[Rfam]
RNA sequence: GGGACGGGCCUUUCAGGCAUCCUCUCCUAAAAACUUUCAAGGCCGGUCCUUCGGGAUCGGCCCUUUUUUGCCCGCGC
Numbered sequence: 001g002g003g004a005c006g007g008g009c010c011u012u013u014c015a016g017g018c019a020u021c022c023u024c025u026c027c028u029a030a031a032a033a034c035u036u037u038c039a040a041g042g043c044c045g046g047u048c049c050u051u052c053g054g055g056a057u058c059g060g061c062c063c064u065u066u067u068u069u070g071c072c073c074g075c076g077c
Stems, first nucleotide, its partner, number of pairs: 008018004041062009
This 77-nucleotide RNA from Sphingomonas sp. MM-1 belongs to the Rfam family "Makes More Granules Regulator RNA (mmgR)". NCBI's taxonomy places the organism under Bacteria, Pseudomonadati, Pseudomonadota, Sphingomonadales, Sphingomonas. The match comes from Rfam's covariance-model search (42 bits). Rfam classes the family as a small RNA.